Description
This 128-nucleotide sequence from Aliiruegeria haliotis belongs to the Rfam family "Ruegeria cis8 sRNA". A reference for the family is Rivers et al. (2016), "Experimental Identification of Small Non-Coding RNAs in the Model Marine Bacterium Ruegeria pomeroyi DSS-3", Front Microbiol. Rfam 15.1 lists 138 matches to the family in 133 species.
[Rfam]
RNA sequence: ACUUCGAGCACUUUGGCGAUGUAGGGGAUCAAGGGCAGGUUCAGGAUCAGCAGAACAAGGUUGCCCAGGUACAUCGAGAUGAUCACCGCCCAGAAGAUCUGCGGCUCGUCGAUCAUCAGGCGCGGGCC
Numbered sequence: 001a002c003u004u005c006g007a008g009c010a011c012u013u014u015g016g017c018g019a020u021g022u023a024g025g026g027g028a029u030c031a032a033g034g035g036c037a038g039g040u041u042c043a044g045g046a047u048c049a050g051c052a053g054a055a056c057a058a059g060g061u062u063g064c065c066c067a068g069g070u071a072c073a074u075c076g077a078g079a080u081g082a083u084c085a086c087c088g089c090c091c092a093g094a095a096g097a098u099c100u101g102c103g104g105c106u107c108g109u110c111g112a113u114c115a116u117c118a119g120g121c122g123c124g125g126g127c128c
Stems, first nucleotide, its partner, number of pairs: 003018001005016001007014002026128002029125002034121001036119001038114003043109001045107002048104001050102005061093003066088001068086001073083003